[Rfam]
RNA sequence: UAAAAGUGAAAACCCGAACUCACUUUAAAAGCAGGGGGCAGAAACCGAAAAGCCAUACGAGUAGGUAAAAA
Dot-bracket structure: .....((((..........)))).............(((.....[......))).........].......